[Rfam]
RNA sequence: UGGGCUUGCUGGAUGAGUGAUCGGCAAUUCCCUUACUUUAGUUCACUCAGAUUUGGAGUUUCAUAUGUCUUUAAGCGUUGCUGAUAAAGCAAAAAUUGUUGCUGAUUAUGCUGUUAAACCA
Numbered sequence: 001u002g003g004g005c006u007u008g009c010u011g012g013a014u015g016a017g018u019g020a021u022c023g024g025c026a027a028u029u030c031c032c033u034u035a036c037u038u039u040a041g042u043u044c045a046c047u048c049a050g051a052u053u054u055g056g057a058g059u060u061u062c063a064u065a066u067g068u069c070u071u072u073a074a075g076c077g078u079u080g081c082u083g084a085u086a087a088a089g090c091a092a093a094a095a096u097u098g099u100u101g102c103u104g105a106u107u108a109u110g111c112u113g114u115u116a117a118a119c120c121a
Base pairs, nucleotide, nucleotide: 007026008025009024010023011022012021052075053074054073055072056071057070058069
RNA: Ribosomal S15 leader